[Rfam]
RNA sequence: UUUUUGAAGUAGAAGCCAUCCGCUUCUCACCUUACAGCGCCAAAGGGCAGCUAGUAAGGUUACAUCAAGCAGAUUAUUAUUUGAUUAUGCUGUUGCGCGGGUGGUUAUGCCAUCCGUUUUUUUUGUUAAAA
Numbered sequence: 001u002u003u004u005u006g007a008a009g010u011a012g013a014a015g016c017c018a019u020c021c022g023c024u025u026c027u028c029a030c031c032u033u034a035c036a037g038c039g040c041c042a043a044a045g046g047g048c049a050g051c052u053a054g055u056a057a058g059g060u061u062a063c064a065u066c067a068a069g070c071a072g073a074u075u076a077u078u079a080u081u082u083g084a085u086u087a088u089g090c091u092g093u094u095g096c097g098c099g100g101g102u103g104g105u106u107a108u109g110c111c112a113u114c115c116g117u118u119u120u121u122u123u124u125g126u127u128a129a130a131a
Base pairs, nucleotide, nucleotide: 011027012026013025014024015023016022029060030059031058036052037051038050039048040047097117098116099115100114101113102112103111104110105109
RNA: Ribosomal protein L20 leader
Organism: Sporomusa termitida